[Rfam]
RNA sequence: GGGAGGUUGGCGGCGGACGUUCCACUCGCCAAUCGGGUCAGGUCCGGAAGGAAGCAGCCCCAACGAAUUCGGCACGGGUUGCCGUCCAGCCUCCCACU
Dot-bracket structure: ...(((((.((((((..(((.(((.(((......((((....(((....)))....))))...))).)..)).)))...))))))..)))))......
Numbered sequence: 001g002g003g004a005g006g007u008u009g010g011c012g013g014c015g016g017a018c019g020u021u022c023c024a025c026u027c028g029c030c031a032a033u034c035g036g037g038u039c040a041g042g043u044c045c046g047g048a049a050g051g052a053a054g055c056a057g058c059c060c061c062a063a064c065g066a067a068u069u070c071g072g073c074a075c076g077g078g079u080u081g082c083c084g085u086c087c088a089g090c091c092u093c094c095c096a097c098u
Stems, first nucleotide, its partner, number of pairs: 004092005010085006018076003022072002024068001026066003035060004043052003